The family of this 126-nucleotide sequence from Nannospalax galili is "Small nucleolar RNA SNORA31". A reference for the family is Huttenhofer et al. (2001), "RNomics: an experimental approach that identifies 201 candidates for novel, small, non-messenger RNAs in mouse", EMBO J. Taxonomically the source falls in Nannospalax (Eukaryota, Tetrapoda, Amniota, Muroidea). Pairs were carried over by alignment from the consensus structure, which was predicted with RNAalifold.
RNA sequence: CUGCACCAAUGAUAGACCUUGAACAAUUUCUGAUUCUUCUUCUGGUUUGCACUAAGAUGCAAACUAGGAUACUUCCUAUGUUUUUUGUCUGUCUUUGUGGCAAUCUAUAUGGUAGGAAAGUUGGGU
Number, nucleotide and partner (000 for none) at each position: 001c000002u061003g060004c059005a058006c000007c056008a000009a000010u051011g050012a000013u049014a048015g047016a046017c045018c044019u000020u000021g039022a038023a037024c000025a035026a034027u033028u000029u000030c000031u000032g000033a027034u026035u025036c000037u023038u022039c021040u000041u000042c000043u000044g018045g017046u016047u015048u014049g013050c011051a010052c000053u000054a000055a000056g007057a000058u005059g004060c003061a002062a000063a000064c000065u000066a000067g000068g000069a000070u000071a000072c000073u118074u117075c116076c115077u114078a113079u000080g000081u112082u000083u000084u109085u000086u107087g106088u000089c000090u102091g101092u100093c099094u000095u000096u000097g000098u000099g093100g092101c091102a090103a000104u000105c000106u087107a086108u000109a084110u000111g000112g081113u078114a077115g076116g075117a074118a073119a000120g000121u000122u000123g000124g000125g000126u000